[Rfam]
RNA sequence: CGCUAGGGAUUAAUUAUCAAGUCCCAUUAUAUUGAAAAAUAUAAUUAUCAAUAAUAAUAUAUUAUUGAGUAAAUCGGGUGAAUUGCAAGGAAGUCCAUAUAUAAUAUAUAUAUAUAUUAUAUAUAUGGAUAAUUUGCAGCGAAGUGCAUUACGUCGAAUAUAUAUAAUAUUAGUAAUGUAAACGUUCAACGACUAGAGAAUGAGUAUCGACAACAAUAACUUCUCCACGAGCGCCCGAUAUUUGUAUAAAUACAACAUUUAUAUAAAUAAUGACAUAGUCUGAACAAUAUAUAAAAUAUUA
Numbered sequence: 001c002g003c004u005a006g007g008g009a010u011u012a013a014u015u016a017u018c019a020a021g022u023c024c025c026a027u028u029a030u031a032u033u034g035a036a037a038a039a040u041a042u043a044a045u046u047a048u049c050a051a052u053a054a055u056a057a058u059a060u061a062u063u064a065u066u067g068a069g070u071a072a073a074u075c076g077g078g079u080g081a082a083u084u085g086c087a088a089g090g091a092a093g094u095c096c097a098u099a100u101a102u103a104a105u106a107u108a109u110a111u112a113u114a115u116a117u118u119a120u121a122u123a124u125a126u127g128g129a130u131a132a133u134u135u136g137c138a139g140c141g142a143a144g145u146g147c148a149u150u151a152c153g154u155c156g157a158a159u160a161u162a163u164a165u166a167a168u169a170u171u172a173g174u175a176a177u178g179u180a181a182a183c184g185u186u187c188a189a190c191g192a193c194u195a196g197a198g199a200a201u202g203a204g205u206a207u208c209g210a211c212a213a214c215a216a217u218a219a220c221u222u223c224u225c226c227a228c229g230a231g232c233g234c235c236c237g238a239u240a241u242u243u244g245u246a247u248a249a250a251u252a253c254a255a256c257a258u259u260u261a262u263a264u265a266a267a268u269a270a271u272g273a274c275a276u277a278g279u280c281u282g283a284a285c286a287a288u289a290u291a292u293a294a295a296a297u298a299u300u301a
Stems, first nucleotide, its partner, number of pairs: 006025006032038001073239005079233002084138006094129010139185002154173001156171002189281001191280005241267009287299004
Group I catalytic intron: a 301-nucleotide RNA from Petasospora fabianii. On this family, see Cech, Annu Rev Biochem 1990: "Self-splicing of group I introns". The source organism's lineage runs through Eukaryota, Opisthokonta, saccharomyceta, Saccharomycetes and Petasospora.